The family of this 80-nucleotide RNA from Setaria viridis is "Plastid-rpl20 3UTR RNA". Pairs were carried over by alignment from the consensus structure, which was predicted with LocARNA. Plastid rpl20 is a non-coding RNA (ncRNA) recognised in plastids. It was found in the three prime untranslated region (3UTR) of rpl20 gene, it presence in the 3UTR region sugest a role in transcript maduration.
RNA sequence: AAUGAAUUCCCAUAGAGGGAGCUCCGGGAAGAUAUAAUGAAUUAAGAUUAAGUGGUAGGAAUCAACGAGCACGUUGCAAU
Numbered sequence: 001a002a003u004g005a006a007u008u009c010c011c012a013u014a015g016a017g018g019g020a021g022c023u024c025c026g027g028g029a030a031g032a033u034a035u036a037a038u039g040a041a042u043u044a045a046g047a048u049u050a051a052g053u054g055g056u057a058g059g060a061a062u063c064a065a066c067g068a069g070c071a072c073g074u075u076g077c078a079a080u
Base pairs, nucleotide, nucleotide: 007030008029009028010027011026014023015022063076064075065074066073
Dot-bracket structure: ......(((((..((......))..)))))................................((((......))))....